[Rfam]
RNA sequence: GGUUUCCAUUGGUGCAAAUCCAAUCACCUCAAUUUAAGAUGAAAAGCAAUUUCCCAUUGGUAGCAAAUAGCUAUCCAUUAAGCGGGGAAAUCCUAU
Numbered sequence: 001g002g003u004u005u006c007c008a009u010u011g012g013u014g015c016a017a018a019u020c021c022a023a024u025c026a027c028c029u030c031a032a033u034u035u036a037a038g039a040u041g042a043a044a045a046g047c048a049a050u051u052u053c054c055c056a057u058u059g060g061u062a063g064c065a066a067a068u069a070g071c072u073a074u075c076c077a078u079u080a081a082g083c084g085g086g087g088a089a090a091u092c093c094u095a096u
Base pairs, nucleotide, nucleotide: 009023010022011021012020052087053086054085055084056078057077059075060074061073062072063071064070
RNA: Plastid-rps12 3UTR RNA